The family of this 96-nucleotide RNA sequence from Triticum urartu is "MIR5387 microRNA precursor family". A search with the family's covariance model found it, with a score of 76 bits. The base pairs follow the family's consensus structure, which was predicted with RNAalifold.

RNA sequence: UGGUGGCACCAACCGGUACCAAAGGAUGGUAUUCGUACCGGUUUGUGCCACCAACCGGUACGAAUGCCACCCUUUGGUACCGGUUGGUGCCACCAA
Numbered sequence: 001u002g003g004u005g006g007c008a009c010c011a012a013c014c015g016g017u018a019c020c021a022a023a024g025g026a027u028g029g030u031a032u033u034c035g036u037a038c039c040g041g042u043u044u045g046u047g048c049c050a051c052c053a054a055c056c057g058g059u060a061c062g063a064a065u066g067c068c069a070c071c072c073u074u075u076g077g078u079a080c081c082g083g084u085u086g087g088u089g090c091c092a093c094c095a096a
Base pairs, nucleotide, nucleotide: 003093004092005091006090007089008088009087010086011085012084013083014082015081016080017079018078019077020076021075022074023073024072025071027069029067030066034062035061036060038058039057045051046050